[Rfam]
RNA sequence: CCCCUUCACAUUCGGCGUAAACGCGCUAUAUCGGACUUGCCGGCUUCGGUCGGCUAUGGCGAUAAAUUGCGGUGUGCAAUAGGCACAGCGGACCCGGGGGCAGUACCCGGCGGCUCCACCAGAACAGGCAAUUCCCCGCCAGUUCUGACGGGGCCGAACCAGGAUCGACGUGUGUUGAAAGGCACUGUUUUCGCCCGGGUUGAGAAACCCCGUAAAAAGCUCAAAACACACAAGUGCCAACGAUAACGAAGCACUCGCCAUCGCUGCGUAAUUUUACGUCCUAACGGACUGAAUUACAAAGCUAAAGCGCGGUUGGACCCACCGGGCAACAGAAGCGGAUACC
Numbered sequence: 001c002c003c004c005u006u007c008a009c010a011u012u013c014g015g016c017g018u019a020a021a022c023g024c025g026c027u028a029u030a031u032c033g034g035a036c037u038u039g040c041c042g043g044c045u046u047c048g049g050u051c052g053g054c055u056a057u058g059g060c061g062a063u064a065a066a067u068u069g070c071g072g073u074g075u076g077c078a079a080u081a082g083g084c085a086c087a088g089c090g091g092a093c094c095c096g097g098g099g100g101c102a103g104u105a106c107c108c109g110g111c112g113g114c115u116c117c118a119c120c121a122g123a124a125c126a127g128g129c130a131a132u133u134c135c136c137c138g139c140c141a142g143u144u145c146u147g148a149c150g151g152g153g154c155c156g157a158a159c160c161a162g163g164a165u166c167g168a169c170g171u172g173u174g175u176u177g178a179a180a181g182g183c184a185c186u187g188u189u190u191u192c193g194c195c196c197g198g199g200u201u202g203a204g205a206a207a208c209c210c211c212g213u214a215a216a217a218a219g220c221u222c223a224a225a226a227c228a229c230a231c232a233a234g235u236g237c238c239a240a241c242g243a244u245a246a247c248g249a250a251g252c253a254c255u256c257g258c259c260a261u262c263g264c265u266g267c268g269u270a271a272u273u274u275u276a277c278g279u280c281c282u283a284a285c286g287g288a289c290u291g292a293a294u295u296a297c298a299a300a301g302c303u304a305a306a307g308c309g310c311g312g313u314u315g316g317a318c319c320c321a322c323c324g325g326g327c328a329a330c331a332g333a334a335g336c337g338g339a340u341a342c343c
Stems, first nucleotide, its partner, number of pairs: 039054005058195005069188007084174003088171003094110005111156007196212004201223003310324004315340001318337001320335001